[Rfam]
RNA sequence: CAUCCUUAGCCUUACUCCAGGGGUUUUCUGCCCGUAGAGUGCCCUGCCCUGACAUUGCCUGAGGAGAGAGCGAGAGCACGUUCCCCUCCCCAGAAACAUGCUGUGUUCUGUGAGGCCUAUGAAUGAGUUGACAGU
Numbered sequence: 001c002a003u004c005c006u007u008a009g010c011c012u013u014a015c016u017c018c019a020g021g022g023g024u025u026u027u028c029u030g031c032c033c034g035u036a037g038a039g040u041g042c043c044c045u046g047c048c049c050u051g052a053c054a055u056u057g058c059c060u061g062a063g064g065a066g067a068g069a070g071c072g073a074g075a076g077c078a079c080g081u082u083c084c085c086c087u088c089c090c091c092a093g094a095a096a097c098a099u100g101c102u103g104u105g106u107u108c109u110g111u112g113a114g115g116c117c118u119a120u121g122a123a124u125g126a127g128u129u130g131a132c133a134g135u
Stems, first nucleotide, its partner, number of pairs: 003065007011057001018051005023040005075129003079125002088115002091112002095109001098107001